[Rfam]
RNA sequence: GAAAGGGCGUGAUACCGAACACGCCUGGGAACCAGGAGUUCCCCUAUUAAA
Numbered sequence: 001g002a003a004a005g006g007g008c009g010u011g012a013u014a015c016c017g018a019a020c021a022c023g024c025c026u027g028g029g030a031a032c033c034a035g036g037a038g039u040u041c042c043c044c045u046a047u048u049a050a051a
Base pairs, nucleotide, nucleotide: 005026006025007024008023009022010021011020027043028042029041030040031039032038
The record is a 51-nucleotide RNA, which matches "S4-Clostridia ribosomal protein leader" in Rfam. By type it is a cis-regulatory leader. The family's consensus secondary structure is taken from published work. For this family Rfam cites "Discovery of 20 novel ribosomal leader candidates in bacteria and archaea" (Eckert and Weinberg, BMC Microbiol, 2020).